[Rfam]
RNA sequence: AAAAAGGGCCUUGAUCUACUUACAUGAUCUGCAUUGAUCCCCUUGGGGAACAAUGUAUGGAAUCGCUAGCAAGAGAUUUCAAAGGCAUAAUAUUUGAGCAAUGUGGCUGACAGCUUCCAUUUGAACUGUCGCCCUA
Numbered sequence: 001a002a003a004a005a006g007g008g009c010c011u012u013g014a015u016c017u018a019c020u021u022a023c024a025u026g027a028u029c030u031g032c033a034u035u036g037a038u039c040c041c042c043u044u045g046g047g048g049a050a051c052a053a054u055g056u057a058u059g060g061a062a063u064c065g066c067u068a069g070c071a072a073g074a075g076a077u078u079u080c081a082a083a084g085g086c087a088u089a090a091u092a093u094u095u096g097a098g099c100a101a102u103g104u105g106g107c108u109g110a111c112a113g114c115u116u117c118c119a120u121u122u123g124a125a126c127u128g129u130c131g132c133c134c135u136a
Stems, first nucleotide, its partner, number of pairs: 008086005013029004030057007038049004058081007105133003109130005115125003
The family of this 136-nucleotide RNA sequence from Holothuria leucospilota is "U11 spliceosomal RNA". The organism belongs to Holothuria, within Eukaryota.